[Rfam]
RNA sequence: CGGUGUGAGGUGGUCACAUGAGUUGCAGUAGGGUAGUGGAACGCACUGCAUCCCAUGUGACCGCCCUACACAGU
Numbered sequence: 001c002g003g004u005g006u007g008a009g010g011u012g013g014u015c016a017c018a019u020g021a022g023u024u025g026c027a028g029u030a031g032g033g034u035a036g037u038g039g040a041a042c043g044c045a046c047u048g049c050a051u052c053c054c055a056u057g058u059g060a061c062c063g064c065c066c067u068a069c070a071c072a073g074u
Base pairs, nucleotide, nucleotide: 003071004070005069006068007067009065010064011063012062013061014060015059016058017057018056019055020054024050025049026048027047
Dot-bracket structure: ..(((((.((((((((((((...((((...................))))...)))))))))))).)))))...

This 74-nucleotide RNA sequence from Ornithorhynchus anatinus belongs to the Rfam family "mir-1421 microRNA precursor family". The source organism's lineage runs through Eukaryota, Opisthokonta, Eumetazoa, Amniota and Ornithorhynchus.